Rfam assigns this 65-nucleotide RNA from Drosophila virilis to the family "FIE3 (ftz instability element 3') element". NCBI's taxonomy places the organism under Eukaryota, Panarthropoda, Neoptera, Drosophilini, Drosophila. Pairs were carried over by alignment from the consensus structure. It is one of the family's seed sequences. By type it is a cis-regulatory element. The fushi tarazu gene is essential for the establishment of the Drosophila embryonic body plan. When first expressed in early embryogenesis, fushi tarazu mRNA is uniformly distributed over most of the embryo. Subsequently, fushi tarazu mRNA expression rapidly evolves into a pattern of seven stripes that encircle the embryo. The instability of fushi tarazu mRNA is probably crucial for attaining this localised pattern of expression. Experiments provide evidence for at least two destabilising elements in the fushi tarazu mRNA, one located within the 5' one-third of the mRNA and the other near the 3' end (termed FIE3 for ftz instability element 3'). The FIE3 lies within a 201-nucleotide sequence just upstream of the polyadenylation signal and can act autonomously to destabilise a heterologous mRNA. Further deletion constructs identified an essential 68-nucleotide element within the FIE3.
Nucleotides: 065
Base pairs, nucleotide, nucleotide: 025051026050027049028048029047030046031045033042
Number, partner (000 for none) and nucleotide at each position: 001000c002000g003000a004000u005000a006000a007000u008000g009000c010000a011000a012000c013000a014000c015000a016000a017000g018000c019000u020000c021000a022000a023000c024000u025051u026050g027049g028048a029047g030046a031045c032000u033042g034000a035000u036000u037000a038000a039000c040000u041000u042033u043000u044000u045031g046030u047029u048028u049027c050026u051025a052000u053000u054000g055000u056000a057000c058000a059000g060000u061000u062000u063000a064000u065000a